[Rfam]
RNA sequence: GCCGAAUCCCGGCCGCGUCCCCGUAGCGGCGGGAACCGGGGACCCAACGGCGCACGCAGGGGGCACGCCCCCGGCGAGCCGCCAUCCCCGGGGUGAAUCCGAGAGGGAGGGCAUGGACGUGUCCUCUGUGGUCACGCGCUCGGUAGGGCUACUCCGGCCCGAACCCGUCAGCUAACCCGGUAGGCGGCCGAGGAGAGGAGCU
Numbered sequence: 001g002c003c004g005a006a007u008c009c010c011g012g013c014c015g016c017g018u019c020c021c022c023g024u025a026g027c028g029g030c031g032g033g034a035a036c037c038g039g040g041g042a043c044c045c046a047a048c049g050g051c052g053c054a055c056g057c058a059g060g061g062g063g064c065a066c067g068c069c070c071c072c073g074g075c076g077a078g079c080c081g082c083c084a085u086c087c088c089c090g091g092g093g094u095g096a097a098u099c100c101g102a103g104a105g106g107g108a109g110g111g112c113a114u115g116g117a118c119g120u121g122u123c124c125u126c127u128g129u130g131g132u133c134a135c136g137c138g139c140u141c142g143g144u145a146g147g148g149c150u151a152c153u154c155c156g157g158c159c160c161g162a163a164c165c166c167g168u169c170a171g172c173u174a175a176c177c178c179g180g181u182a183g184g185c186g187g188c189c190g191a192g193g194a195g196a197g198g199a200g201c202u
Stems, first nucleotide, its partner, number of pairs: 001185003007034005035181006045090001091166003099143004146160004
Rfam assigns this 202-nucleotide RNA from Sphaerisporangium album to the family "c-di-AMP riboswitch aptamer (ydaO/yuaA leader)".
The organism belongs to Sphaerisporangium, within Bacteria.
It scores 54 bits against the family's covariance model.